[Rfam]
RNA sequence: AUUGAAUAUGAGGAUCCUUUCCCCAAAUGAUUGAAUAUGAUAACCUUUAUAUUGUGUGCACAUGUAAUCCUUAUCAGAGGGUUCGAAGCCAUCUCUUGUGAACAAU
Numbered sequence: 001a002u003u004g005a006a007u008a009u010g011a012g013g014a015u016c017c018u019u020u021c022c023c024c025a026a027a028u029g030a031u032u033g034a035a036u037a038u039g040a041u042a043a044c045c046u047u048u049a050u051a052u053u054g055u056g057u058g059c060a061c062a063u064g065u066a067a068u069c070c071u072u073a074u075c076a077g078a079g080g081g082u083u084c085g086a087a088g089c090c091a092u093c094u095c096u097u098g099u100g101a102a103c104a105a106u
Stems, first nucleotide, its partner, number of pairs: 001106004
Small nucleolar RNA Z103: a 106-nucleotide RNA sequence from Triticum aestivum. Lineage of the source: Eukaryota > Euphyllophyta > Spermatophyta > commelinids > Triticum. A reference for the family is Chen et al. (2003), "The high diversity of snoRNAs in plants: identification and comparative study of 120 snoRNA genes from Oryza sativa", Nucleic Acids Res. Rfam links the family to the GO terms RNA processing and nucleolus. The family's RNA type in Rfam is C/D-box small nucleolar RNA. The match comes from Rfam's covariance-model search (49 bits).